[Rfam]
RNA sequence: GAUAGGGCAUGAAAGGACCUCCCCGCCGAAGGAAGCACCCGCGAGAGUGUUGUACGAGGCGGGGUGCCAGUGUCCUAUCGUACGUUUUGAAGAACGG
Numbered sequence: 001g002a003u004a005g006g007g008c009a010u011g012a013a014a015g016g017a018c019c020u021c022c023c024c025g026c027c028g029a030a031g032g033a034a035g036c037a038c039c040c041g042c043g044a045g046a047g048u049g050u051u052g053u054a055c056g057a058g059g060c061g062g063g064g065u066g067c068c069a070g071u072g073u074c075c076u077a078u079c080g081u082a083c084g085u086u087u088u089g090a091a092g093a094a095c096g097g
Stems, first nucleotide, its partner, number of pairs: 001079010015068002021064007031055001036049003040045001083096003
Dot-bracket structure: ((((((((((....((....(((((((...(....(((.(....).))).....)..)))))))..)).))))))))))...(((........))).
Rfam assigns this 97-nucleotide part of an RNA from Methanocella conradii to the family "Archaeal large subunit ribosomal RNA". Gene Ontology terms of the family: ribosome and structural constituent of ribosome. NCBI's taxonomy places the organism under Archaea, Methanomicrobia, Methanocellales, Methanocella, Methanocella conradii.